The family of this 127-nucleotide RNA from Dipodomys ordii is "Small nucleolar RNA SNORA63". Rfam's curators write: E3 belongs to the H/ACA class of snoRNAs and is involved in the processing of eukaryotic pre-rRNA and has regions of complementarity to 18S rRNA. E3 is encoded in introns in the gene for protein synthesis initiation factor 4AII. The base pairs follow the family's consensus structure, which was predicted with PFOLD.
[Rfam]
RNA sequence: AUGCAGGUAUGGAUACAAUAUAACUGAAGUGUUCUAUUGUCGUUCCCCCUGCUUAAAGCAUAUGAUACAUUACUAUCUCUGUCUAGCUUUAUUCCAUAGUAAGACAGAGAUGCUUGGUCUCAAACAU
Number, nucleotide and partner (000 for none) at each position: 001a000002u000003g052004c051005a050006g049007g048008u000009a000010u000011g000012g000013a000014u000015a040016c039017a038018a037019u036020a035021u000022a033023a032024c031025u000026g000027a000028a000029g000030u000031g024032u023033u022034c000035u020036a019037u018038u017039g016040u015041c000042g000043u000044u000045c000046c000047c000048c007049c006050u005051g004052c003053u000054u000055a000056a000057a000058g000059c000060a000061u000062a000063u000064g000065a000066u000067a000068c000069a000070u000071u000072a000073c000074u000075a000076u000077c000078u108079c107080u106081g105082u000083c103084u102085a000086g100087c099088u000089u000090u000091a000092u000093u000094c000095c000096a000097u000098a000099g087100u086101a000102a084103g083104a000105c081106a080107g079108a078109g000110a000111u000112g000113c000114u000115u000116g000117g000118u000119c000120u000121c000122a000123a000124a000125c000126a000127u000